[Rfam]
RNA sequence: GGUCAUGAGCGCCAGCGUGAAACCCCGGUUUGCUGGCCGGCAACCCUCCACUCGCGGUGGGGUGCCCCGGGUGACGACCUGGCUCCCCGCCGCACGGCGCGGAGCAAGCGCGGGGC
Numbered sequence: 001g002g003u004c005a006u007g008a009g010c011g012c013c014a015g016c017g018u019g020a021a022a023c024c025c026c027g028g029u030u031u032g033c034u035g036g037c038c039g040g041c042a043a044c045c046c047u048c049c050a051c052u053c054g055c056g057g058u059g060g061g062g063u064g065c066c067c068c069g070g071g072u073g074a075c076g077a078c079c080u081g082g083c084u085c086c087c088c089g090c091c092g093c094a095c096g097g098c099g100c101g102g103a104g105c106a107a108g109c110g111c112g113g114g115g116c
Stems, first nucleotide, its partner, number of pairs: 001079004009038001011037006021030002039066003044062003048057002082105005088099004
Background:
Rfam assigns this 116-nucleotide sequence from Cellulomonas sp. PhB143 to the family "SAM (S-adenosyl methionine) riboswitch aptamer". Lineage of the source: Bacteria > Bacillati > Actinomycetes > Micrococcales > Cellulomonas. Pairs were carried over by alignment from the consensus structure, which is taken from published work. SAM-IV is a mRNA element that regulates gene expression via direct sensing of S-adenosylmethionine (SAM or AdoMet). SAM-IV riboswitches share conserved nucleotide positions with the previously described SAM-I riboswitches sequence analysis and molecular recognition experiments suggest that SAM-I and SAM-IV riboswitches share similar ligand binding sites, but have different scaffolds. A search with the family's covariance model found it, with a score of 112 bits.